[Rfam]
RNA sequence: UUGUUUGCGGGUGUAGCAUCAUCAAGAUUCACAUGCAAAUGCACGGUGGUGGCGAUGGAUAAUACAAACUCUCUUCUUUUUUUCUCCCCUUCCCCUUUCUUUUCUCUUCUCCUUUAUGCCAAACUUGUUUGGAAAGUGAGAAUCUUGAUGAUGCUGCAUCGGCAAUAAA
Number, nucleotide and partner (000 for none) at each position: 001u000002u000003g000004u000005u000006u000007g000008c000009g000010g160011g159012u158013g157014u156015a155016g154017c153018a152019u151020c150021a149022u148023c147024a146025a145026g144027a143028u142029u141030c140031a000032c138033a137034u000035g000036c000037a000038a000039a000040u000041g000042c000043a000044c000045g000046g000047u000048g000049g000050u000051g000052g000053c000054g000055a000056u000057g000058g000059a000060u000061a000062a000063u000064a000065c000066a000067a000068a000069c000070u000071c000072u000073c000074u000075u000076c000077u000078u000079u000080u000081u000082u000083u000084c000085u000086c000087c000088c000089c000090u000091u000092c000093c000094c000095c000096u000097u000098u000099c000100u000101u000102u000103u000104c000105u000106c000107u000108u000109c000110u000111c000112c000113u000114u000115u000116a000117u000118g000119c000120c000121a000122a000123a000124c000125u000126u000127g000128u000129u000130u000131g000132g000133a000134a000135a000136g000137u033138g032139a000140g030141a029142a028143u027144c026145u025146u024147g023148a022149u021150g020151a019152u018153g017154c016155u015156g014157c013158a012159u011160c010161g000162g000163c000164a000165a000166u000167a000168a000169a000